[Rfam]
RNA sequence: CCUUCCGAGGAGCGUUGCAGCGUCCCCAGCAUAGCGGGGCGUGAGGCUCGGAACCCACCCUAGCAACGACGCUCAUCCACU
Numbered sequence: 001c002c003u004u005c006c007g008a009g010g011a012g013c014g015u016u017g018c019a020g021c022g023u024c025c026c027c028a029g030c031a032u033a034g035c036g037g038g039g040c041g042u043g044a045g046g047c048u049c050g051g052a053a054c055c056c057a058c059c060c061u062a063g064c065a066a067c068g069a070c071g072c073u074c075a076u077c078c079a080c081u
Base pairs, nucleotide, nucleotide: 003053004052005051006050007049008048021041022040023039024038025037026036